The record is an 86-nucleotide RNA sequence from Solanum tuberosum, which matches "MIR8024 microRNA precursor family" in Rfam. The source organism's lineage runs through Eukaryota, Streptophytina, Euphyllophyta, Mesangiospermae and Solanum. The match comes from Rfam's covariance-model search (68 bits). Rfam links the family to the GO terms RISC complex and miRNA-mediated post-transcriptional gene silencing.
RNA sequence: UUGAAGAUUGUGAAGACUUCAACCUGCAGACUUGAAAAAUUUGAAGACUUCAACUAGCCUACUUGGAGAUUUUGAAGACUUCAUCU
Numbered sequence: 001u002u003g004a005a006g007a008u009u010g011u012g013a014a015g016a017c018u019u020c021a022a023c024c025u026g027c028a029g030a031c032u033u034g035a036a037a038a039a040u041u042u043g044a045a046g047a048c049u050u051c052a053a054c055u056a057g058c059c060u061a062c063u064u065g066g067a068g069a070u071u072u073u074g075a076a077g078a079c080u081u082c083a084u085c086u
Stems, first nucleotide, its partner, number of pairs: 002083005009076001011074004017068005026058002032053005
Dot-bracket structure: .(((((..(.((((..(((((....((....(((((............)))))...)).....)))))..)))).)..)))))...